Archaeal large subunit ribosomal RNA: a 447-nucleotide part of an RNA from Halonotius sp. J07HN4. Its Rfam clan is "LSU clan".
RNA sequence: CCAACCGAAACAUGUCGAAGCAUGACCUCACCCGAGAUAGUCCGUGAGGUAGAGCCACCGAUUACUCGUUCCGCCCUCGAGAGAGGUCGGCCGGGUUGUCGAACUCCAAACUUACGGACGUUGUAGACGGUGGGAGUCCGGACUGCGGGGUAAGCCUGUGGUCCAUGAGGGAGACAACCCAGCGUACGGUUAAGGACCCAAAAUACGGAUUAAGUGCAACCGAAGGUGGUCUCAAGCCCUAAACAGCCGGGAGGUGAGCUUAGAAGCAGCAACCCGCUAAGAAAAGCGUAACAGCUUACCGGCCGAGGUUUGAGGCGCCCAAAAUGAUCGGGGCUCAAAUCCGUUUCCGAGACCGUACAACACCAAUCAUAGUGACUACGUAGGUUGGCGUACUGUUCGAGUGGAAAUACGGGCGAGAGCUCGUGUGGAUCGUACAGUAACGACAAU
Numbered sequence: 001c002c003a004a005c006c007g008a009a010a011c012a013u014g015u016c017g018a019a020g021c022a023u024g025a026c027c028u029c030a031c032c033c034g035a036g037a038u039a040g041u042c043c044g045u046g047a048g049g050u051a052g053a054g055c056c057a058c059c060g061a062u063u064a065c066u067c068g069u070u071c072c073g074c075c076c077u078c079g080a081g082a083g084a085g086g087u088c089g090g091c092c093g094g095g096u097u098g099u100c101g102a103a104c105u106c107c108a109a110a111c112u113u114a115c116g117g118a119c120g121u122u123g124u125a126g127a128c129g130g131u132g133g134g135a136g137u138c139c140g141g142a143c144u145g146c147g148g149g150g151u152a153a154g155c156c157u158g159u160g161g162u163c164c165a166u167g168a169g170g171g172a173g174a175c176a177a178c179c180c181a182g183c184g185u186a187c188g189g190u191u192a193a194g195g196a197c198c199c200a201a202a203a204u205a206c207g208g209a210u211u212a213a214g215u216g217c218a219a220c221c222g223a224a225g226g227u228g229g230u231c232u233c234a235a236g237c238c239c240u241a242a243a244c245a246g247c248c249g250g251g252a253g254g255u256g257a258g259c260u261u262a263g264a265a266g267c268a269g270c271a272a273c274c275c276g277c278u279a280a281g282a283a284a285a286g287c288g289u290a291a292c293a294g295c296u297u298a299c300c301g302g303c304c305g306a307g308g309u310u311u312g313a314g315g316c317g318c319c320c321a322a323a324a325u326g327a328u329c330g331g332g333g334c335u336c337a338a339a340u341c342c343g344u345u346u347c348c349g350a351g352a353c354c355g356u357a358c359a360a361c362a363c364c365a366a367u368c369a370u371a372g373u374g375a376c377u378a379c380g381u382a383g384g385u386u387g388g389c390g391u392a393c394u395g396u397u398c399g400a401g402u403g404g405a406a407a408u409a410c411g412g413g414c415g416a417g418a419g420c421u422c423g424u425g426u427g428g429a430u431c432g433u434a435c436a437g438u439a440a441c442g443a444c445a446a447u
Stems, first nucleotide, its partner, number of pairs: 001388006011024005026136001027134006036122003040119008052107001053105002060100003064096005073088001075086004140164009169180003184358007194348003203345001205344006225319003229316010246303005253275002258270002277281001282297001286295002360377001361374003365370001389442001391439006398432003407426008
Lineage of the source: Archaea > Methanobacteriati > Methanobacteriota > Halobacteriales > Halonotius.